[Rfam]
RNA sequence: CCCCUCGAAGCCCUAACCCACACACGUAUCGACACGGUUUUCUGGGUGCCUGCAAAGGUUGAAAAUCGGGAUGCGUGGAGGCCUAAC
Dot-bracket structure: ......................((((((((....((((((((.....((((....)))).)))))))).))))))))..........

Notes
The record is an 87-nucleotide RNA from Pseudomonas sp. ABC1, which matches "t44 RNA" in Rfam. The family's consensus secondary structure was predicted with LocARNA. This family consists of a number of bacterial RNA genes of between 135 and 170 bases in length. The t44 gene has been identified in several species of enteric bacteria but homologs have also been identified in Pseudomonas and Coxiella species. The t44 gene is found between the map and rpsB genes in all species in the full alignment apart from Shigella flexneri.